[Rfam]
RNA sequence: AUUCGUGUGCUCGGGCAAGCACCUAUAGCAGUGAGGUUUAUAACCGAGCUUAGGUCAUUUGCUAGUUGCAAACUACCAUCUAAACCCCUAAUUUCGCUUGUUCGAAAUUGAAUCUCUGGAACCCACCUUGACGAGG
Numbered sequence: 001a002u003u004c005g006u007g008u009g010c011u012c013g014g015g016c017a018a019g020c021a022c023c024u025a026u027a028g029c030a031g032u033g034a035g036g037u038u039u040a041u042a043a044c045c046g047a048g049c050u051u052a053g054g055u056c057a058u059u060u061g062c063u064a065g066u067u068g069c070a071a072a073c074u075a076c077c078a079u080c081u082a083a084a085c086c087c088c089u090a091a092u093u094u095c096g097c098u099u100g101u102u103c104g105a106a107a108u109u110g111a112a113u114c115u116c117u118g119g120a121a122c123c124c125a126c127c128u129u130g131a132c133g134a135g136g
Base pairs, nucleotide, nucleotide: 021055022054023053024052025051027050028049029048035045036044037043089110090109091108092107093106094105095104096103123136124135126133
Dot-bracket structure: ....................(((((.(((.....(((.....)))..)))))))).................................((((((((......))))))))............((.(......).))
Rfam assigns this 136-nucleotide RNA from Microbotryum intermedium to the family "U4 spliceosomal RNA". The organism belongs to Microbotryum, within Eukaryota. The match comes from Rfam's covariance-model search (71 bits).